[Rfam]
RNA sequence: GGACUGUGACGAUUUCUGUGAUAAGGUUUGUUCAUCGUAGUUGACCAAAUCGGCCUUGCUGACUAUUCUGCUAUAUCACCACCCAGGUUCUGAGUCC
Numbered sequence: 001g002g003a004c005u006g007u008g009a010c011g012a013u014u015u016c017u018g019u020g021a022u023a024a025g026g027u028u029u030g031u032u033c034a035u036c037g038u039a040g041u042u043g044a045c046c047a048a049a050u051c052g053g054c055c056u057u058g059c060u061g062a063c064u065a066u067u068c069u070g071c072u073a074u075a076u077c078a079c080c081a082c083c084c085a086g087g088u089u090c091u092g093a094g095u096c097c
Base pairs, nucleotide, nucleotide: 001097002096003095004094047057048056
Dot-bracket structure: ((((..........................................((.......))....................................))))
The family of this 97-nucleotide RNA sequence from Phaseolus vulgaris is "Small nucleolar RNA Z43". By type it is a C/D-box small nucleolar RNA. The family's consensus secondary structure was predicted with PFOLD.